[Rfam]
RNA sequence: CGGUCUCCGGUUCACGUGGGCGAGCCCGCCCGCGACCCGGGGAC
Numbered sequence: 001c002g003g004u005c006u007c008c009g010g011u012u013c014a015c016g017u018g019g020g021c022g023a024g025c026c027c028g029c030c031c032g033c034g035a036c037c038c039g040g041g042g043a044c
Stems, first nucleotide, its partner, number of pairs: 003044001007040004015034008

The record is a 44-nucleotide sequence from Cellulomonas carbonis, which matches "L31-Actinobacteria ribosomal protein leader" in Rfam. The family is grouped with related families in Rfam's "Ribosomal Protein L31 Leader clan". The family's consensus secondary structure is taken from published work. The family's RNA type in Rfam is cis-regulatory leader. The match comes from Rfam's covariance-model search (40 bits). On this family, see Eckert and Weinberg, BMC Microbiol 2020: "Discovery of 20 novel ribosomal leader candidates in bacteria and archaea".